This 57-nucleotide RNA from Sporolactobacillus inulinus belongs to the Rfam family "Bacillaceae-1 RNA". NCBI's taxonomy places the organism under Bacteria, Bacilli, Caryophanales, Sporolactobacillaceae, Sporolactobacillus.

RNA sequence: UUUCGCUAAGUGCGCAUACGUCCUGUAUGCAACGCGAAAGUCAUCACAUCCUGUGAA
Numbered sequence: 001u002u003u004c005g006c007u008a009a010g011u012g013c014g015c016a017u018a019c020g021u022c023c024u025g026u027a028u029g030c031a032a033c034g035c036g037a038a039a040g041u042c043a044u045c046a047c048a049u050c051c052u053g054u055g056a057a
Stems, first nucleotide, its partner, number of pairs: 001039006015029005044056004
Dot-bracket structure: ((((((........(((((.....)))))....))))))....((((.....)))).